[Rfam]
RNA sequence: UGAGUUGGCUGGGUGAUCGCGAUCCUUGAACCACACCUCACCUUUGGGUGCGGUGUAGGCAAGUGGUCGAGGAAAGUCCGGACUCCACAGAGCACGGUGAUUGCUAACGGCAACCCGGGGUGACCCGAGGGCAUGUGCAACAGAAAGUAAACCGCCCCUACUUCGGUAGGGGUAAGGGUGAAAGGGUGCGGUAAGAGCGCACCGGCGGGGCAGGUGACUGCCCCGGCCAGGUAAACCCCACCGGGAGCAAGGCAAAACACGACAUACCUUGGUGUGUCGCGGCACAGGCGCUUAAAGGCUGCUCGCCUAGCCUGUGGGUAGCUGCUUGAGGCAACCAGCAAUGGUUCGCCCUAGAUGGAUGUUCACCGAACCGCGCUUAAGCACGCGGGGAACAGAAUCCGGCUUAUAGGCCAACUCAUUCG
Numbered sequence: 001u002g003a004g005u006u007g008g009c010u011g012g013g014u015g016a017u018c019g020c021g022a023u024c025c026u027u028g029a030a031c032c033a034c035a036c037c038u039c040a041c042c043u044u045u046g047g048g049u050g051c052g053g054u055g056u057a058g059g060c061a062a063g064u065g066g067u068c069g070a071g072g073a074a075a076g077u078c079c080g081g082a083c084u085c086c087a088c089a090g091a092g093c094a095c096g097g098u099g100a101u102u103g104c105u106a107a108c109g110g111c112a113a114c115c116c117g118g119g120g121u122g123a124c125c126c127g128a129g130g131g132c133a134u135g136u137g138c139a140a141c142a143g144a145a146a147g148u149a150a151a152c153c154g155c156c157c158c159u160a161c162u163u164c165g166g167u168a169g170g171g172g173u174a175a176g177g178g179u180g181a182a183a184g185g186g187u188g189c190g191g192u193a194a195g196a197g198c199g200c201a202c203c204g205g206c207g208g209g210g211c212a213g214g215u216g217a218c219u220g221c222c223c224c225g226g227c228c229a230g231g232u233a234a235a236c237c238c239c240a241c242c243g244g245g246a247g248c249a250a251g252g253c254a255a256a257a258c259a260c261g262a263c264a265u266a267c268c269u270u271g272g273u274g275u276g277u278c279g280c281g282g283c284a285c286a287g288g289c290g291c292u293u294a295a296a297g298g299c300u301g302c303u304c305g306c307c308u309a310g311c312c313u314g315u316g317g318g319u320a321g322c323u324g325c326u327u328g329a330g331g332c333a334a335c336c337a338g339c340a341a342u343g344g345u346u347c348g349c350c351c352u353a354g355a356u357g358g359a360u361g362u363u364c365a366c367c368g369a370a371c372c373g374c375g376c377u378u379a380a381g382c383a384c385g386c387g388g389g390g391a392a393c394a395g396a397a398u399c400c401g402g403c404u405u406a407u408a409g410g411c412c413a414a415c416u417c418a419u420u421c422g
Base pairs, nucleotide, nucleotide: 001418002417003416004415005414006413007412008411009410010409011407012367013366014365015364016363018361020069021068022067023066024065025063026062027061028060074405075404076403078402079401080400081399082398083247084246085245086244090304091303092302093301095243096242097241098240099239101113102112103111104110115129116127117126118125119124130238131237135236136235137232138231152177153176154173155172156171157170158169159168160167161166185203186202187201188200189199190198205227206225207224208223209222210221211220212219213218251323252322253321284315285314286313287312288311289310296308297307298306299305330350331349332348333346334345335344336343337342
Rfam assigns this 422-nucleotide RNA sequence from Corynebacterium spheniscorum to the family "Bacterial RNase P class A". Pairs were carried over by alignment from the consensus structure, which is taken from published work. Lineage of the source: Bacteria > Bacillati > Actinomycetota > Mycobacteriales > Corynebacterium.